[Rfam]
RNA sequence: GUGCUUGGGAUUAUAAAUAUUUAAUAUCUUAUAGGAUUUUAGUGAUAUUGUAUAUAAUCUGUAAUCUGUUUGUUACACACACUGCAGCGU
Numbered sequence: 001g002u003g004c005u006u007g008g009g010a011u012u013a014u015a016a017a018u019a020u021u022u023a024a025u026a027u028c029u030u031a032u033a034g035g036a037u038u039u040u041a042g043u044g045a046u047a048u049u050g051u052a053u054a055u056a057a058u059c060u061g062u063a064a065u066c067u068g069u070u071u072g073u074u075a076c077a078c079a080c081a082c083u084g085c086a087g088c089g090u
Stems, first nucleotide, its partner, number of pairs: 001090005